[Rfam]
RNA sequence: UGUGUAUUUAUGAAGACUUGGUCAUAAACCACUCACACUGUUGGCUGACCAAGUCAGAUGGUUUCACAUA
Numbered sequence: 001u002g003u004g005u006a007u008u009u010a011u012g013a014a015g016a017c018u019u020g021g022u023c024a025u026a027a028a029c030c031a032c033u034c035a036c037a038c039u040g041u042u043g044g045c046u047g048a049c050c051a052a053g054u055c056a057g058a059u060g061g062u063u064u065c066a067c068a069u070a
Stems, first nucleotide, its partner, number of pairs: 001070005015055010
RNA: Selenocysteine insertion sequence 1